[Rfam]
RNA sequence: UGUCUCCUCCACCCUCCUCCUUUGGUGUGGAUUUAGCGCAGAUCUCCCCGAUCUGCGCUUUUUUUU
Numbered sequence: 001u002g003u004c005u006c007c008u009c010c011a012c013c014c015u016c017c018u019c020c021u022u023u024g025g026u027g028u029g030g031a032u033u034u035a036g037c038g039c040a041g042a043u044c045u046c047c048c049c050g051a052u053c054u055g056c057g058c059u060u061u062u063u064u065u066u
Base pairs, nucleotide, nucleotide: 008031009030010029011028012027013025014024035059036058037057038056039055040054041053042052
RNA: Betaproteobacteria toxic small RNA